[Rfam]
RNA sequence: CCUGCCGCCGUACCGGAUUCCGUGCGUACAUGAGUGGAUCGGCAGGAGUGGAGGACCCGAGCGUUACGGACCGGCGCGUGGCACGCGACCGUUCCUCGGGGUGAAGCCGCUCACGCGGCCGGGCACCUUCGUUGGCCCGAACCCGACAGGUCAUCCUUCACAGGCGGCUGACGAAGGGUUG
Numbered sequence: 001c002c003u004g005c006c007g008c009c010g011u012a013c014c015g016g017a018u019u020c021c022g023u024g025c026g027u028a029c030a031u032g033a034g035u036g037g038a039u040c041g042g043c044a045g046g047a048g049u050g051g052a053g054g055a056c057c058c059g060a061g062c063g064u065u066a067c068g069g070a071c072c073g074g075c076g077c078g079u080g081g082c083a084c085g086c087g088a089c090c091g092u093u094c095c096u097c098g099g100g101g102u103g104a105a106g107c108c109g110c111u112c113a114c115g116c117g118g119c120c121g122g123g124c125a126c127c128u129u130c131g132u133u134g135g136c137c138c139g140a141a142c143c144c145g146a147c148a149g150g151u152c153a154u155c156c157u158u159c160a161c162a163g164g165c166g167g168c169u170g171a172c173g174a175a176g177g178g179u180u181g
Base pairs, nucleotide, nucleotide: 006166007165008164009045048161049160050159051158052157053156058098059097060096061095099144100143101142107118108117109116110115121138122137123136124135
Dot-bracket structure: .....((((...................................)..((((((....((((.................................))))(((.....((((....))))..((((..........))))...)))...........))))))..)))...............
Shown here is a 181-nucleotide sequence from Streptomyces montanisoli, a member of the family "c-di-AMP riboswitch aptamer (ydaO/yuaA leader)".
A search with the family's covariance model found it, with a score of 46 bits.
NCBI's taxonomy places the organism under Bacteria, Bacillati, Kitasatosporales, Streptomycetaceae, Streptomyces.